[Rfam]
RNA sequence: GAUAAUACAACCUGCUAAGUGCUAGAACACUUAGCAGGUUGUAUUAUAU
Numbered sequence: 001g002a003u004a005a006u007a008c009a010a011c012c013u014g015c016u017a018a019g020u021g022c023u024a025g026a027a028c029a030c031u032u033a034g035c036a037g038g039u040u041g042u043a044u045u046a047u048a049u
Stems, first nucleotide, its partner, number of pairs: 002047009012037003016033006
Shown here is a 49-nucleotide RNA sequence from Mus musculus, a member of the family "mir-374 microRNA precursor family". The organism belongs to Mus, within Eukaryota.